A member of the RNA family "Mammalian CPEB3 ribozyme" from Crocodylus porosus, 78 nucleotides long.
The match comes from Rfam's covariance-model search (43 bits).
Rfam 15.1 lists 5,706 matches to the family in 197 species.
Pairs were carried over by alignment from the consensus structure, which is taken from published work.
RNA sequence: AGGUCACAAGUUUGAGGCCACCGCAGAACUGCUCACAGCACAGCCAUGUGAGAUUCCAGUGAAUCUGCAAAUUCUGCU
Numbered sequence: 001a002g003g004u005c006a007c008a009a010g011u012u013u014g015a016g017g018c019c020a021c022c023g024c025a026g027a028a029c030u031g032c033u034c035a036c037a038g039c040a041c042a043g044c045c046a047u048g049u050g051a052g053a054u055u056c057c058a059g060u061g062a063a064u065c066u067g068c069a070a071a072u073u074c075u076g077c078u
Stems, first nucleotide, its partner, number of pairs: 013046001016045003023077006030040002051066006
Lineage of the source: Eukaryota > Opisthokonta > Dipnotetrapodomorpha > Longirostres > Crocodylus.